Rfam assigns this 118-nucleotide RNA from Manihot esculenta to the family "Small nucleolar RNA Z278". snoZ278 is a C/D box small nucleolar RNA. Its methylation guide targets have not been reported.
[Rfam]
RNA sequence: GCUGAUGAUGAUAUAAUCCACCUUGUUGUAGGUGUAGUGGAGCCAAGUCCCUGCUUGUAAGGGAGAACCUACUUGGUGGAAGCUACAUUACAAUGACAUUAAUGGAUAACGCUGAAGC
Numbered sequence: 001g002c003u004g005a006u007g008a009u010g011a012u013a014u015a016a017u018c019c020a021c022c023u024u025g026u027u028g029u030a031g032g033u034g035u036a037g038u039g040g041a042g043c044c045a046a047g048u049c050c051c052u053g054c055u056u057g058u059a060a061g062g063g064a065g066a067a068c069c070u071a072c073u074u075g076g077u078g079g080a081a082g083c084u085a086c087a088u089u090a091c092a093a094u095g096a097c098a099u100u101a102a103u104g105g106a107u108a109a110c111g112c113u114g115a116a117g118c
Base pairs, nucleotide, nucleotide: 001118002117003116049063050062051061052060
Its family is annotated with RNA processing and nucleolus in the Gene Ontology. The match comes from Rfam's covariance-model search (51 bits).